[Rfam]
The record is a 179-nucleotide RNA from Paenibacillus solani, which matches "Lysine riboswitch aptamer" in Rfam. Lineage of the source: Bacteria > Bacillati > Caryophanales > Paenibacillaceae > Paenibacillus.
RNA sequence: AGAUGAGGUAGAGGUUGCAUACAGGAUCAGUAAUUGUGCCAAGGCAAAGAGAAGCCGAUGAAGCGCAAUGAAAGGCUUGAAUGCCGAAGUGCAGGGUAUACUCUUGUAUCCUGUGCUGGGGCCGUUGUCGAAAGAGACGGAACUGUCACGGGAGCUUCCCGUGUUGAGCUAUCUUCAUG
Numbered sequence: 001a002g003a004u005g006a007g008g009u010a011g012a013g014g015u016u017g018c019a020u021a022c023a024g025g026a027u028c029a030g031u032a033a034u035u036g037u038g039c040c041a042a043g044g045c046a047a048a049g050a051g052a053a054g055c056c057g058a059u060g061a062a063g064c065g066c067a068a069u070g071a072a073a074g075g076c077u078u079g080a081a082u083g084c085c086g087a088a089g090u091g092c093a094g095g096g097u098a099u100a101c102u103c104u105u106g107u108a109u110c111c112u113g114u115g116c117u118g119g120g121g122c123c124g125u126u127g128u129c130g131a132a133a134g135a136g137a138c139g140g141a142a143c144u145g146u147c148a149c150g151g152g153a154g155c156u157u158c159c160c161g162u163g164u165u166g167a168g169c170u171a172u173c174u175u176c177a178u179g
Stems, first nucleotide, its partner, number of pairs: 006174006017084004022079004033069007088117012118144002122140005128134001147163006